[Rfam]
RNA sequence: GGUCGAUUAGCUCAGUUGGUAGAGCGCUACCCUUACAAGGUAGAUGUCACAAGUUCGAGUCUUGUAUCGACCA
Numbered sequence: 001g002g003u004c005g006a007u008u009a010g011c012u013c014a015g016u017u018g019g020u021a022g023a024g025c026g027c028u029a030c031c032c033u034u035a036c037a038a039g040g041u042a043g044a045u046g047u048c049a050c051a052a053g054u055u056c057g058a059g060u061c062u063u064g065u066a067u068c069g070a071c072c073a
Stems, first nucleotide, its partner, number of pairs: 001072007010025004027043005049065005
RNA: tRNA